[Rfam]
RNA sequence: AUCGGUACGAAAGUACCGAUAGAAACGUGCGGCGACCCAGACUCACGGUGACCCGCAUAAGUCCUGUAUGCACCCGAGCCAAACUCACGGCAAGGGAGCCGAUUACACAAUACAAGGAG
Dot-bracket structure: ((((((((....))))))))......((((((....((........))....))))))...........((.(.....................)..))....................